[Rfam]
RNA: PreQ1 (pre queuosine) riboswitch aptamer
Organism: Thomasclavelia spiroformis
RNA sequence: AAUAAACUGGUUCGAAAGCCAAACCCAGUAUAAAAAACUAAGAAUAA
Numbered sequence: 001a002a003u004a005a006a007c008u009g010g011u012u013c014g015a016a017a018g019c020c021a022a023a024c025c026c027a028g029u030a031u032a033a034a035a036a037a038c039u040a041a042g043a044a045u046a047a
Stems, first nucleotide, its partner, number of pairs: 006029005016039001